A member of the RNA family "L19-Flavobacteria ribosomal protein leader" from Oryzias latipes, 28 nucleotides long. On this family, see Eckert and Weinberg, BMC Microbiol 2020: "Discovery of 20 novel ribosomal leader candidates in bacteria and archaea". The family's consensus secondary structure is taken from published work.
RNA sequence: AAACCUCUGACAAUAAGUGUGGAUGUUU
Numbered sequence: 001a002a003a004c005c006u007c008u009g010a011c012a013a014u015a016a017g018u019g020u021g022g023a024u025g026u027u028u
Stems, first nucleotide, its partner, number of pairs: 001028004008023001010020003